The record is a 114-nucleotide RNA from Allacma fusca, which matches "Potassium channel RNA editing signal" in Rfam. The match comes from Rfam's covariance-model search (94 bits). From the family's description: This family represents a group of sequences related to the human potassium channel Kv1.1 hairpin element which directs the efficient modification of an adenosine to inosine by an adenosine deaminase acting on RNA (ADAR). Rfam links the family to the GO term adenosine to inosine editing. Lineage of the source: Eukaryota > Bilateria > Mandibulata > Allotriocarida > Allacma. It is annotated as a cis-regulatory element. The base pairs follow the family's consensus structure, which is taken from published work.
Nucleotides: 114
Base pairs, nucleotide, nucleotide: 001114002113004111005110008107009106010105011104013102014101015100018097021094037077038076040074049063050062
Number, partner (000 for none) and nucleotide at each position: 001114g002113u003000u004111g005110g006000c007000u008107a009106c010105g011104g012000a013102g014101a015100u016000a017000u018097g019000a020000c021094u022000c023000c024000u025000a026000a027000a028000a029000c030000a031000u032000a033000c034000a035000u036000a037077g038076g039000c040074a041000u042000g043000u044000u045000u046000g047000u048000g049063g050062g051000a052000g053000c054000u055000c056000u057000c058000u059000g060000u061000g062050c063049u064000c065000u066000c067000g068000c069000u070000g071000g072000u073000g074040u075000a076038c077037u078000c079000a080000c081000c082000a083000u084000u085000g086000c087000u088000c089000u090000a091000c092000c093000c094021g095000u096000c097018c098000c099000a100015g101014u102013c103000a104011u105010c106009g107008u108000c109000u110005c111004u112000a113002a114001c